[Rfam]
RNA: Small nucleolar RNA SNORA61
Organism: Saimiri boliviensis
RNA sequence: ACCCUCUGGUUCCUGUUCCCAUUGGAUCUGAACGCUGGUCUUGGUGGUUGUAAAAGGAGGCUGAGUAACACUGAAGGUGGCCUCGCAGUGUUGUAGUCUGGCAUAUCGUUUCCACAAUGGUUCAAAA
Number, nucleotide and partner (000 for none) at each position: 001a000002c000003c060004c059005u058006c057007u056008g000009g000010u000011u000012c000013c000014u000015g000016u000017u000018c000019c047020c046021a045022u044023u043024g000025g040026a039027u038028c037029u000030g000031a000032a000033c000034g000035c000036u000037g028038g027039u026040c025041u000042u000043g023044g022045u021046g020047g019048u000049u000050g000051u000052a000053a000054a000055a000056g007057g006058a005059g004060g003061c000062u000063g000064a000065g000066u000067a000068a000069c000070a000071c000072u000073g000074a000075a000076g000077g118078u117079g000080g115081c000082c000083u000084c000085g000086c000087a000088g000089u000090g000091u000092u108093g107094u000095a000096g000097u000098c000099u000100g000101g000102c000103a000104u000105a000106u000107c093108g092109u000110u000111u000112c000113c000114a000115c080116a000117a078118u077119g000120g000121u000122u000123c000124a000125a000126a000127a000